[Rfam]
The family of this 136-nucleotide sequence from Sus scrofa is "Small Cajal body specific RNA 3". Pairs were carried over by alignment from the consensus structure, which was predicted with RNAalifold. The family's RNA type in Rfam is small Cajal body RNA.

RNA sequence: AAUGGAACCUGCAAGAACCCAUCAUGUAGACAAAAAAUGCCUUUUGUCUACAAAUUGCAGUGAUCCUACAUUAACAUGGAGGUCUCUGUCUGGCUUAGGACAGCUGACUAAGUCUGAUCGUUCCCCUCCAUACAGC
Number, nucleotide and partner (000 for none) at each position: 001a000002a000003u000004g066005g065006a064007a000008c000009c060010u059011g058012c057013a000014a000015g000016a000017a000018c000019c000020c000021a000022u000023c000024a000025u052026g051027u050028a049029g048030a047031c046032a000033a000034a000035a000036a043037a000038u000039g000040c000041c000042u000043u036044u000045u000046g031047u030048c029049u028050a027051c026052a025053a000054a000055u000056u000057g012058c011059a010060g009061u000062g000063a000064u006065c005066c004067u000068a000069c000070a000071u000072u000073a000074a000075c000076a000077u000078g129079g128080a127081g126082g125083u000084c000085u000086c120087u000088g118089u117090c116091u000092g114093g113094c112095u111096u110097a109098g108099g000100a000101c000102a000103g000104c000105u000106g000107a000108c098109u097110a096111a095112g094113u093114c092115u000116g090117a089118u088119c000120g086121u000122u000123c000124c000125c082126c081127u080128c079129c078130a000131u000132a000133c000134a000135g000136c000

For this family Rfam cites "Cajal body-specific small nuclear RNAs: a novel class of 2'-O-methylation and pseudouridylation guide RNAs" (Darzacq et al., EMBO J, 2002). The family is grouped with related families in Rfam's "SCARNA3 clan". A search with the family's covariance model found it, with a score of 147 bits. The organism belongs to Sus, within Eukaryota. scaRNAs are a specific class of small nuclear RNAs which localise to the Cajal bodies and guide the modification of RNA polymerase II transcribed spliceosomal RNAs U1, U2, U4, U5 and U12.